[Rfam]
RNA sequence: GUUGGUGAUGACAGGAAAAGUUUUCGCAGCCACAAAACAGUUGCCCGGUUAUUGGGAAUGACUGAAUCUGCUGUGAGGAAAGUCCCUGGACCUGCGAUUGAGAGAAUCGGCUCCUUGGAGCGCUCAGUCGAGGUGAAUGGCUCUGUAGCCAGCCUUCUGCCAGUAAUUCGGCCAUGACAUCCUGUUUUCAAGGACUAGUCUUGGCUGGUGGAGGUGCCUCGAUUUUCGUCAAAUCAAAGUGACGCUUGCCAAACUGCAUAGGGCUUACCCGUUGAUCACCUA
Numbered sequence: 001g002u003u004g005g006u007g008a009u010g011a012c013a014g015g016a017a018a019a020g021u022u023u024u025c026g027c028a029g030c031c032a033c034a035a036a037a038c039a040g041u042u043g044c045c046c047g048g049u050u051a052u053u054g055g056g057a058a059u060g061a062c063u064g065a066a067u068c069u070g071c072u073g074u075g076a077g078g079a080a081a082g083u084c085c086c087u088g089g090a091c092c093u094g095c096g097a098u099u100g101a102g103a104g105a106a107u108c109g110g111c112u113c114c115u116u117g118g119a120g121c122g123c124u125c126a127g128u129c130g131a132g133g134u135g136a137a138u139g140g141c142u143c144u145g146u147a148g149c150c151a152g153c154c155u156u157c158u159g160c161c162a163g164u165a166a167u168u169c170g171g172c173c174a175u176g177a178c179a180u181c182c183u184g185u186u187u188u189c190a191a192g193g194a195c196u197a198g199u200c201u202u203g204g205c206u207g208g209u210g211g212a213g214g215u216g217c218c219u220c221g222a223u224u225u226u227c228g229u230c231a232a233a234u235c236a237a238a239g240u241g242a243c244g245c246u247u248g249c250c251a252a253a254c255u256g257c258a259u260a261g262g263g264c265u266u267a268c269c270c271g272u273u274g275a276u277c278a279c280c281u282a
Stems, first nucleotide, its partner, number of pairs: 002282001004280006011272002015249001017247001019246003024076007039053003043049002080266003084263004096108004110121004145223002151219002154216001156214003160210001169207004193200002
Dot-bracket structure: .(.((((((.((..[.[.[[[..(((((((........(((.((...)).)))................)))))))...(((.((((........((((.....)))).((((....)))).......................((....((.(.(((.(........((((....................((....))...))))..).))).).))..))....................]]]].]..........)))))))....))..)))))).)
RNA: RNase MRP